[Rfam]
RNA sequence: GCGGUACCGGUUCACGCCCCCUGCGGAGGGCGACCCGGCGACU
Numbered sequence: 001g002c003g004g005u006a007c008c009g010g011u012u013c014a015c016g017c018c019c020c021c022u023g024c025g026g027a028g029g030g031c032g033a034c035c036c037g038g039c040g041a042c043u
Base pairs, nucleotide, nucleotide: 003043004042005041007038008037009036010035015032016031017030018029019028020026021025
Shown here is a 43-nucleotide RNA sequence, a member of the family "L31-Actinobacteria ribosomal protein leader".
Its Rfam clan is "Ribosomal Protein L31 Leader clan".
The family's RNA type in Rfam is cis-regulatory leader.
It is one of the family's seed sequences.